[Rfam]
A member of the RNA family "Ruegeria cis2 sRNA" from Shimia thalassica, 153 nucleotides long. A search with the family's covariance model found it, with a score of 103 bits. The family's consensus secondary structure was predicted with RNAfold.

RNA sequence: GCUGCUGUUUCGUGGAUAGUAGUUGAUGAACAUAAACCCGCGGGAUUGAUCGAUGCAGUGAAACAGCGGGUUCCAGUCGAACAUCGCAAGCAUGAAAGAUGGCAUGGUGUUCGCCACGAACAUUUUGCCAGACGCAAUCAUGUUCGCCCGUUG
Numbered sequence: 001g002c003u004g005c006u007g008u009u010u011c012g013u014g015g016a017u018a019g020u021a022g023u024u025g026a027u028g029a030a031c032a033u034a035a036a037c038c039c040g041c042g043g044g045a046u047u048g049a050u051c052g053a054u055g056c057a058g059u060g061a062a063a064c065a066g067c068g069g070g071u072u073c074c075a076g077u078c079g080a081a082c083a084u085c086g087c088a089a090g091c092a093u094g095a096a097a098g099a100u101g102g103c104a105u106g107g108u109g110u111u112c113g114c115c116a117c118g119a120a121c122a123u124u125u126u127g128c129c130a131g132a133c134g135c136a137a138u139c140a141u142g143u144u145c146g147c148c149c150g151u152u153g
Stems, first nucleotide, its partner, number of pairs: 003034002006032004013025003039055002041052003064153005070082004086147002089144006100131001102129001103127002106124003110119002